Background: The family of this 177-nucleotide sequence from Megalodesulfovibrio gigas is "FMN riboswitch aptamer (RFN element)". Rfam links the family to the GO term FMN binding.
RNA sequence: ACUUAUUCUCAGGGCGGGGUGCAAUUCCCCACCGGCGGUAUUCCGGGAUCGGCGGUCGGCGUCGUGCCUGGAGAGCCCGCGAGCGCCUGUGCCGGGCCGGUUGUGCCGGCGCAGGGUCCAGCAGAUCUGGUGCAAGGCCAGAGCCGACGGUGACAGUCCGGAUGAAAGAGGAUAAGG
Numbered sequence: 001a002c003u004u005a006u007u008c009u010c011a012g013g014g015c016g017g018g019g020u021g022c023a024a025u026u027c028c029c030c031a032c033c034g035g036c037g038g039u040a041u042u043c044c045g046g047g048a049u050c051g052g053c054g055g056u057c058g059g060c061g062u063c064g065u066g067c068c069u070g071g072a073g074a075g076c077c078c079g080c081g082a083g084c085g086c087c088u089g090u091g092c093c094g095g096g097c098c099g100g101u102u103g104u105g106c107c108g109g110c111g112c113a114g115g116g117u118c119c120a121g122c123a124g125a126u127c128u129g130g131u132g133c134a135a136g137g138c139c140a141g142a143g144c145c146g147a148c149g150g151u152g153a154c155a156g157u158c159c160g161g162a163u164g165a166a167a168g169a170g171g172a173u174a175a176g177g
Stems, first nucleotide, its partner, number of pairs: 003175008017029003031157002033146002035080004075144002083122002126142005148160003